[Rfam]
RNA sequence: AUACUCUGGUUUCUCUUCAAAACGCAUAAAUCUUUCGCCUUUUACUAAAGAUUUCCGUGGAGAGAAACAAUUCUGAGUCUCGCUAAUUUUUUGAGGCCUUGCUUUGGGCAAGGCU
Number, nucleotide and partner (000 for none) at each position: 001a000002u000003a078004c077005u076006c075007u000008g000009g068010u067011u066012u065013c064014u063015c062016u061017u060018c059019a058020a000021a000022a000023c000024g000025c000026a000027u000028a054029a053030a052031u051032c050033u049034u048035u047036c000037g000038c000039c000040u000041u000042u000043u000044a000045c000046u000047a035048a034049a033050g032051a031052u030053u029054u028055c000056c000057g000058u019059g018060g017061a016062g015063a014064g013065a012066a011067a010068c009069a000070a000071u000072u000073c000074u000075g006076a005077g004078u003079c000080u000081c000082g000083c000084u000085a000086a000087u000088u000089u000090u000091u000092u000093g000094a115095g000096g114097c113098c112099u111100u110101g109102c000103u000104u000105u000106g000107g000108g000109c101110a100111a099112g098113g097114c096115u094
RNA: U5 spliceosomal RNA
Organism: Callorhinus ursinus